[Rfam]
RNA sequence: CUACUCCCUUCGUCCCAAAAUGUAAGACGCUUUUUGACACUAUCAUAGUGUUAAAAAGCGCCUUACAUUUUGGGACGGAGGGAGUAU
Numbered sequence: 001c002u003a004c005u006c007c008c009u010u011c012g013u014c015c016c017a018a019a020a021u022g023u024a025a026g027a028c029g030c031u032u033u034u035u036g037a038c039a040c041u042a043u044c045a046u047a048g049u050g051u052u053a054a055a056a057a058g059c060g061c062c063u064u065a066c067a068u069u070u071u072g073g074g075a076c077g078g079a080g081g082g083a084g085u086a087u
Stems, first nucleotide, its partner, number of pairs: 003085003007081005013075005019069008028060014